[Rfam]
RNA sequence: CUGGCCACCUGGCUCGGAGAACUGAAUUCCAUAGGCUGUGAGCUCUAGCAAAUGCCCUAGGGACUCAGUUCUGGGGCCGAGCCGUGCUGU
Numbered sequence: 001c002u003g004g005c006c007a008c009c010u011g012g013c014u015c016g017g018a019g020a021a022c023u024g025a026a027u028u029c030c031a032u033a034g035g036c037u038g039u040g041a042g043c044u045c046u047a048g049c050a051a052a053u054g055c056c057c058u059a060g061g062g063a064c065u066c067a068g069u070u071c072u073g074g075g076g077c078c079g080a081g082c083c084g085u086g087c088u089g090u
Stems, first nucleotide, its partner, number of pairs: 008081001011078003018072008034056003
RNA: mir-146 microRNA precursor family